The record is a 302-nucleotide RNA from Leptosomus discolor, which matches "7SK RNA" in Rfam. 7SK was discovered as an abundant small nuclear RNA in the mid-70s but a possible function has only recently been suggested. The base pairs follow the family's consensus structure, which is taken from published work. The family is grouped with related families in Rfam's "7SK clan".
[Rfam]
RNA sequence: GGAUGUGAGGGAGAUCUGGCUGCGAUACCUGUCACCCCAUUGAUCGCUAGGGUUAAUCCAUCUGAUCUGGCUGGCUAGGCGGGUGUCUCCUUCCUCCCUCACUGCUCCAUGUGCGUCCCUCCCAAAGUUGGGCGCUCGGUUGAAGAGGAUGACCCUCCCUGAUAGAGGCGGCAGCGUUCAUUGGUCAAGGGUACAUGGUAGCUGUGCUUCCCCCCGCUGCUAGAACCUUCAAACAAGCUGUGUGUGAUUUCAUUGAAACAGUUAUCUCACCUUUUCUUUUUUUCAAUUAGAAGAUUAAUAUA
Numbered sequence: 001g002g003a004u005g006u007g008a009g010g011g012a013g014a015u016c017u018g019g020c021u022g023c024g025a026u027a028c029c030u031g032u033c034a035c036c037c038c039a040u041u042g043a044u045c046g047c048u049a050g051g052g053u054u055a056a057u058c059c060a061u062c063u064g065a066u067c068u069g070g071c072u073g074g075c076u077a078g079g080c081g082g083g084u085g086u087c088u089c090c091u092u093c094c095u096c097c098c099u100c101a102c103u104g105c106u107c108c109a110u111g112u113g114c115g116u117c118c119c120u121c122c123c124a125a126a127g128u129u130g131g132g133c134g135c136u137c138g139g140u141u142g143a144a145g146a147g148g149a150u151g152a153c154c155c156u157c158c159c160u161g162a163u164a165g166a167g168g169c170g171g172c173a174g175c176g177u178u179c180a181u182u183g184g185u186c187a188a189g190g191g192u193a194c195a196u197g198g199u200a201g202c203u204g205u206g207c208u209u210c211c212c213c214c215c216g217c218u219g220c221u222a223g224a225a226c227c228u229u230c231a232a233a234c235a236a237g238c239u240g241u242g243u244g245u246g247a248u249u250u251c252a253u254u255g256a257a258a259c260a261g262u263u264a265u266c267u268c269a270c271c272u273u274u275u276c277u278u279u280u281u282u283u284c285a286a287u288u289a290g291a292a293g294a295u296u297a298a299u300a301u302a
Stems, first nucleotide, its partner, number of pairs: 001108003005102007013093002018090002024087010035074002037070003042067004046062001048060001116171002118168004122139002125136001127135002140162003147158003201251001213244001215242003219238002278298002280294005